Rfam assigns this 83-nucleotide RNA sequence from Myotis brandtii to the family "mir-9236 microRNA precursor family". The family has 3 seed sequences and 348 matches in Rfam 15.1. Lineage of the source: Eukaryota > Eumetazoa > Gnathostomata > Theria > Myotis.
[Rfam]
RNA sequence: UUUACUUUUCUAGUUGUAGGACUUUCAUUCAGCCAGCUUUCUGGCAGUUCUGGAUGAUGUUUGUUCUGUAUUUUAGUUGUAAU
Numbered sequence: 001u002u003u004a005c006u007u008u009u010c011u012a013g014u015u016g017u018a019g020g021a022c023u024u025u026c027a028u029u030c031a032g033c034c035a036g037c038u039u040u041c042u043g044g045c046a047g048u049u050c051u052g053g054a055u056g057a058u059g060u061u062u063g064u065u066c067u068g069u070a071u072u073u074u075a076g077u078u079g080u081a082a083u
Base pairs, nucleotide, nucleotide: 002082003081004080005079010076011075012074013073015070016069017068018067019066020065021064022063026056027055028054029053030052031051032050034047036045037044038043
Dot-bracket structure: .((((....((((.((((((((...(((((((.(.(((....))).)..)))))))......))))))))..))))..)))).